[Rfam]
RNA sequence: CCGGCAGGCUGCUUUAUCGUCCCGAGUACUCGGGAAGGAAAGUCCGGGCAACGCAGGGCACCGCGCUCCUUAACCGGGAGAUCUCUGAAAGGGGAUAGCAGUGUAACAGAAAAUAACCGUCUUGCUGGAGUUUUGGUUUGAAAGCGGACAAGUCCGCCUUCGCCGGGGCUUCGGCGGACAAGGGUGAAAAGGUGGGGUAAGAGCCCACCGGUGGCCGUGGCGACACGGUCAGCCGUACACCUCGCGGGUUGCAAAGCCAAAUAUAUCCUGAUUGAAAAGCUGUUGCUGCUCAACGAAACGGCCCGUUUCGUUUCCGGCUGCACACCGGGAGUCAGGAGGGGUAGGCUGCAAGGAUCCCGGCAGCAAUGACGGGACAAGAUAAAUGAUAAAGGCUCAUGACGUUCAUUUAUGAUGAAAUCAGAGUACAGAACCCGGCUUACAGGCCUGCCUUUUUU
Numbered sequence: 001c002c003g004g005c006a007g008g009c010u011g012c013u014u015u016a017u018c019g020u021c022c023c024g025a026g027u028a029c030u031c032g033g034g035a036a037g038g039a040a041a042g043u044c045c046g047g048g049c050a051a052c053g054c055a056g057g058g059c060a061c062c063g064c065g066c067u068c069c070u071u072a073a074c075c076g077g078g079a080g081a082u083c084u085c086u087g088a089a090a091g092g093g094g095a096u097a098g099c100a101g102u103g104u105a106a107c108a109g110a111a112a113a114u115a116a117c118c119g120u121c122u123u124g125c126u127g128g129a130g131u132u133u134u135g136g137u138u139u140g141a142a143a144g145c146g147g148a149c150a151a152g153u154c155c156g157c158c159u160u161c162g163c164c165g166g167g168g169c170u171u172c173g174g175c176g177g178a179c180a181a182g183g184g185u186g187a188a189a190a191g192g193u194g195g196g197g198u199a200a201g202a203g204c205c206c207a208c209c210g211g212u213g214g215c216c217g218u219g220g221c222g223a224c225a226c227g228g229u230c231a232g233c234c235g236u237a238c239a240c241c242u243c244g245c246g247g248g249u250u251g252c253a254a255a256g257c258c259a260a261a262u263a264u265a266u267c268c269u270g271a272u273u274g275a276a277a278a279g280c281u282g283u284u285g286c287u288g289c290u291c292a293a294c295g296a297a298a299c300g301g302c303c304c305g306u307u308u309c310g311u312u313u314c315c316g317g318c319u320g321c322a323c324a325c326c327g328g329g330a331g332u333c334a335g336g337a338g339g340g341g342u343a344g345g346c347u348g349c350a351a352g353g354a355u356c357c358c359g360g361c362a363g364c365a366a367u368g369a370c371g372g373g374a375c376a377a378g379a380u381a382a383a384u385g386a387u388a389a390a391g392g393c394u395c396a397u398g399a400c401g402u403u404c405a406u407u408u409a410u411g412a413u414g415a416a417a418u419c420a421g422a423g424u425a426c427a428g429a430a431c432c433c434g435g436c437u438u439a440c441a442g443g444c445c446u447g448c449c450u451u452u453u454u455u
Stems, first nucleotide, its partner, number of pairs: 003449008011440001012391007020035006040438003044435005049251004056323001058321002061247005066080005081096001082094004097242002101240005117183002119179003123176015191209006211233001212231008255347004266337005314328004355374005361368002
A member of the RNA family "Bacterial RNase P class A" from Tangfeifania diversioriginum, 455 nucleotides long. By type it is a ribozyme.